Rfam assigns this 137-nucleotide RNA from Cyprinodon variegatus to the family "Small nucleolar RNA SNORA5". Rfam describes the family as follows. ACA5 is a member of the H/ACA class of snoRNA that guide the sites of modification of uridines to pseudouridines. Clan: SNORA5 clan. The family's RNA type in Rfam is H/ACA-box small nucleolar RNA. Lineage of the source: Eukaryota > Actinopterygii > Euteleosteomorpha > Eurypterygia > Cyprinodon.
[Rfam]
RNA sequence: UGCAGCCUUGUCAAAUUCAGUGCUUCCUCCUUCCUGGAUGCCACUGGCCAAAAUGGCUGCCACAGUAAGGGUGCAGCUCAUGGGCCCCACGGCGCUCCAAUAUGGCCACUGGGGAUAAAUGUGUGCUGCACACAAAC
Numbered sequence: 001u002g003c004a005g006c007c008u009u010g011u012c013a014a015a016u017u018c019a020g021u022g023c024u025u026c027c028u029c030c031u032u033c034c035u036g037g038a039u040g041c042c043a044c045u046g047g048c049c050a051a052a053a054u055g056g057c058u059g060c061c062a063c064a065g066u067a068a069g070g071g072u073g074c075a076g077c078u079c080a081u082g083g084g085c086c087c088c089a090c091g092g093c094g095c096u097c098c099a100a101u102a103u104g105g106c107c108a109c110u111g112g113g114g115a116u117a118a119a120u121g122u123g124u125g126c127u128g129c130a131c132a133c134a135a136a137c
Stems, first nucleotide, its partner, number of pairs: 002060004018046005023040001025038003073129005078123001085114005
Dot-bracket structure: .((((............((((((.(((........))).).)))))..........))))............((((((......(((((....................)))))........).)))))........